This 437-nucleotide RNA sequence from Zhengella mangrovi belongs to the Rfam family "Bacterial RNase P class A". The base pairs follow the family's consensus structure, which is taken from published work. The family's RNA type in Rfam is ribozyme.

RNA sequence: UCAGCCGGCCGGGCGGCCGCGACUGCAGGUGCCGAAAGGCCGCAGUCGAGGAAAGUCCGGGCUCCAUGGAAACACGGUGCCGGGUAACGCCCGGCGGGGGAAACCCCAGGGAAAGCGCCACAGAAAGCAAACCGCCCCGCCACCCUUCCGGCCUGCCAGAGUGCAGGCGAUGAAGGCCUGAACGGCGGCGGGGCAAGGGUGAAAGGGUGGGGUAAGAGCCCACCGCGCGGGCAGCAAUGUCGGCGGCAUGGCAAGCCCCACCGGGAGCAAGACCGAAUAGGGAUGACGCGGCGAAAGCCGGGGCUGUUUCCGGCUCCAGUCAUCCGGGUAGGUUGCUCGAGGUGUCCGGCAACGGACAUCCCAGAGGAAUGGUCGCCACGUUCAUGCCCCUCGGGACAUGGGCCAUACAGAACCCGGCUUACAGGCCGGCUGACACC
Numbered sequence: 001u002c003a004g005c006c007g008g009c010c011g012g013g014c015g016g017c018c019g020c021g022a023c024u025g026c027a028g029g030u031g032c033c034g035a036a037a038g039g040c041c042g043c044a045g046u047c048g049a050g051g052a053a054a055g056u057c058c059g060g061g062c063u064c065c066a067u068g069g070a071a072a073c074a075c076g077g078u079g080c081c082g083g084g085u086a087a088c089g090c091c092c093g094g095c096g097g098g099g100g101a102a103a104c105c106c107c108a109g110g111g112a113a114a115g116c117g118c119c120a121c122a123g124a125a126a127g128c129a130a131a132c133c134g135c136c137c138c139g140c141c142a143c144c145c146u147u148c149c150g151g152c153c154u155g156c157c158a159g160a161g162u163g164c165a166g167g168c169g170a171u172g173a174a175g176g177c178c179u180g181a182a183c184g185g186c187g188g189c190g191g192g193g194c195a196a197g198g199g200u201g202a203a204a205g206g207g208u209g210g211g212g213u214a215a216g217a218g219c220c221c222a223c224c225g226c227g228c229g230g231g232c233a234g235c236a237a238u239g240u241c242g243g244c245g246g247c248a249u250g251g252c253a254a255g256c257c258c259c260a261c262c263g264g265g266a267g268c269a270a271g272a273c274c275g276a277a278u279a280g281g282g283a284u285g286a287c288g289c290g291g292c293g294a295a296a297g298c299c300g301g302g303g304c305u306g307u308u309u310c311c312g313g314c315u316c317c318a319g320u321c322a323u324c325c326g327g328g329u330a331g332g333u334u335g336c337u338c339g340a341g342g343u344g345u346c347c348g349g350c351a352a353c354g355g356a357c358a359u360c361c362c363a364g365a366g367g368a369a370u371g372g373u374c375g376c377c378a379c380g381u382u383c384a385u386g387c388c389c390c391u392c393g394g395g396a397c398a399u400g401g402g403c404c405a406u407a408c409a410g411a412a413c414c415c416g417g418c419u420u421a422c423a424g425g426c427c428g429g430c431u432g433a434c435a436c437c
Stems, first nucleotide, its partner, number of pairs: 001433010011422001012377007020048007028040001053420003057417005062267004071309002075263005080094005095109001096107004110258002115256002117252003132198002134194008206224006225247001226245003230241004271334004281325006301316005341360008
NCBI's taxonomy places the organism under Bacteria, Pseudomonadati, Alphaproteobacteria, Notoacmeibacteraceae, Zhengella.